[Rfam]
RNA: Clostridiales-1 RNA
Organism: Lachnospiraceae bacterium MD308
RNA sequence: UGAUGCCAGGGUCAAAAGGUCAUGUGAUUCAUGCUUGCAUGAAUAAACAUGACUUUGUGACCCGUAAAAACAUGAAAAAGUAGCCCGAUUAGGGCGGAUUUUGAAUGUUUUUAGGAUUGUGGGAGCACGAAGUGCGGAACAAUCCGCGGCAUCA
Numbered sequence: 001u002g003a004u005g006c007c008a009g010g011g012u013c014a015a016a017a018g019g020u021c022a023u024g025u026g027a028u029u030c031a032u033g034c035u036u037g038c039a040u041g042a043a044u045a046a047a048c049a050u051g052a053c054u055u056u057g058u059g060a061c062c063c064g065u066a067a068a069a070a071c072a073u074g075a076a077a078a079a080g081u082a083g084c085c086c087g088a089u090u091a092g093g094g095c096g097g098a099u100u101u102u103g104a105a106u107g108u109u110u111u112u113a114g115g116a117u118u119g120u121g122g123g124a125g126c127a128c129g130a131a132g133u134g135c136g137g138a139a140c141a142a143u144c145c146g147c148g149g150c151a152u153c154a
Base pairs, nucleotide, nucleotide: 001154002153003152004151005150006149007148010062011061012060013059016056017055018054019053020052021051022050023049024048025047029042030041031040032039033038066112067111068110069109070108071107072106073105076102077101078100079099083095084094085093086092114145115144116143117142118141119140120139125135126134127133128132
Dot-bracket structure: (((((((..((((..((((((((((...(((((....)))))....))))))))))..))))...((((((((..((((...((((.....))))...))))..)))))))).(((((((....((((...))))...)))))))..)))))))